[Rfam]
RNA sequence: AAACAGUCCCCUAUGUUUUGAUUCUUUAGCAGUUUUGGACCCCAAGGCCAAAAAAAAUAAAAUUACACGUGGCACCUCACUUAGGGUGCCACGUCAGCGUUGACCGAGUCAACAAUGAACUGGGGGUCCAAAACUGCCAAAGAAUCAAAACAUAGGAGACUGUUU
Numbered sequence: 001a002a003a004c005a006g007u008c009c010c011c012u013a014u015g016u017u018u019u020g021a022u023u024c025u026u027u028a029g030c031a032g033u034u035u036u037g038g039a040c041c042c043c044a045a046g047g048c049c050a051a052a053a054a055a056a057a058u059a060a061a062a063u064u065a066c067a068c069g070u071g072g073c074a075c076c077u078c079a080c081u082u083a084g085g086g087u088g089c090c091a092c093g094u095c096a097g098c099g100u101u102g103a104c105c106g107a108g109u110c111a112a113c114a115a116u117g118a119a120c121u122g123g124g125g126g127u128c129c130a131a132a133a134c135u136g137c138c139a140a141a142g143a144a145u146c147a148a149a150a151c152a153u154a155g156g157a158g159a160c161u162g163u164u165u
Base pairs, nucleotide, nucleotide: 001165002164004162005161006160007159008158012154013153014152015151016150017149018148019147020146021145022144023143024142025141026140027139029137030136031135032134033133034132035131036130037129038128039127040126041125042124043123045121067094068093070091071090072089073088074087075086076085
This 165-nucleotide RNA sequence from Medicago truncatula belongs to the Rfam family "MIR2619 microRNA precursor family".
NCBI's taxonomy places the organism under Eukaryota, Tracheophyta, Fabales, Hologalegina, Medicago.
The family's consensus secondary structure was predicted with RNAalifold.
Rfam links the family to the GO terms miRNA-mediated post-transcriptional gene silencing and RISC complex.